[Rfam]
RNA sequence: AGUACCUUUUAAAAAUGUCCAGAGAGGCAUUUAAGGGUGUUCAAGUAAAGCGUGGAAGGGUUUCAUACGGGAACUAUACACGCCAACUAAAGGCCACCCUUAUAAAAAGGGUGGUUUUUUUAU
Dot-bracket structure: ....((((.....((((((......)))))).))))..............((((.(.((.((((....)))).)).).)))).......((((((((((((.....)))))))))))).....
The record is a 123-nucleotide RNA sequence from Bacillus thermotolerans, which matches "PyrR binding site" in Rfam. It scores 57 bits against the family's covariance model. Rfam classes the family as a cis-regulatory element.